[Rfam]
RNA sequence: AUCUAUCCGUCGGGGUGCCCUAGGGGGCUGAGAGGUGCGUGCACCGACCCGUCGAACCUGAUCCGGGCAAUACCGGCGUAGGGAACGGGUAUCUUUGUGCA
Dot-bracket structure: .....(((((((((..((((....))))......(((....)))...)))).....((((..((((......))))..))))..)))))............
RNA: TPP riboswitch aptamer (THI element)
Organism: Sulfitobacter sp. NAS-14.1